[Rfam]
Background
Bacterial large signal recognition particle RNA: a 265-nucleotide RNA from Aedoeadaptatus ivorii.
RNA sequence: CCAUGCUAGAUGGGGAAUCAGCGGUGCCCUGUAACUUGCAAUCCGCUACAGCAAGAUUGAAUUCCCGAUCGAGGGUAUCUUUCUUGUGGUCUGCCCGAAACAAGUGAUGUUGAGGAGCGGGUCCUACGCAAUAGGCGCUUGCGAACCGUGUCAGGUCUUGACGGAAGCAGCACUAAGUAAGUCAGUCUAUGUGACGUAGAUUCGCCUGUUCUGAGUUAACUAUUUCGGUAACGCACGGGAAAUUUAUUCGAAGUCGGGUGCAUGG
Numbered sequence: 001c002c003a004u005g006c007u008a009g010a011u012g013g014g015g016a017a018u019c020a021g022c023g024g025u026g027c028c029c030u031g032u033a034a035c036u037u038g039c040a041a042u043c044c045g046c047u048a049c050a051g052c053a054a055g056a057u058u059g060a061a062u063u064c065c066c067g068a069u070c071g072a073g074g075g076u077a078u079c080u081u082u083c084u085u086g087u088g089g090u091c092u093g094c095c096c097g098a099a100a101c102a103a104g105u106g107a108u109g110u111u112g113a114g115g116a117g118c119g120g121g122u123c124c125u126a127c128g129c130a131a132u133a134g135g136c137g138c139u140u141g142c143g144a145a146c147c148g149u150g151u152c153a154g155g156u157c158u159u160g161a162c163g164g165a166a167g168c169a170g171c172a173c174u175a176a177g178u179a180a181g182u183c184a185g186u187c188u189a190u191g192u193g194a195c196g197u198a199g200a201u202u203c204g205c206c207u208g209u210u211c212u213g214a215g216u217u218a219a220c221u222a223u224u225u226c227g228g229u230a231a232c233g234c235a236c237g238g239g240a241a242a243u244u245u246a247u248u249c250g251a252a253g254u255c256g257g258g259u260g261c262a263u264g265g
Stems, first nucleotide, its partner, number of pairs: 001265006009058003012030004017025003035055005064258006073249005080242009092230002096227005104220002106217003114212009124199005129191002132189005137182006148173004156165003

The family is grouped with related families in Rfam's "SRP clan".